[Rfam]
A member of the RNA family "MIR396 microRNA precursor family" from Cynara cardunculus, 119 nucleotides long. Rfam 15.1 lists 744 matches to the family in 207 species. A search with the family's covariance model found it, with a score of 92 bits. NCBI's taxonomy places the organism under Eukaryota, Tracheophyta, Carduinae, Cynara cardunculus, Cynara cardunculus subsp. cardunculus. Gene Ontology terms of the family: miRNA-mediated post-transcriptional gene silencing and RISC complex.
RNA sequence: CUUUCUGUUCUUCCACAGCUUUCUUGAACUGCAUGGUUCAAUGUUGAUCUGUUGGAUCUGUCCUUUUUUUUUGUACUUAAACCUUUGCAGUUCAAUAAAGCUGUGGGAAGAUAGAGGGA
Numbered sequence: 001c002u003u004u005c006u007g008u009u010c011u012u013c014c015a016c017a018g019c020u021u022u023c024u025u026g027a028a029c030u031g032c033a034u035g036g037u038u039c040a041a042u043g044u045u046g047a048u049c050u051g052u053u054g055g056a057u058c059u060g061u062c063c064u065u066u067u068u069u070u071u072u073g074u075a076c077u078u079a080a081a082c083c084u085u086u087g088c089a090g091u092u093c094a095a096u097a098a099a100g101c102u103g104u105g106g107g108a109a110g111a112u113a114g115a116g117g118g119a
Stems, first nucleotide, its partner, number of pairs: 003116005013106003017102006024095004029090005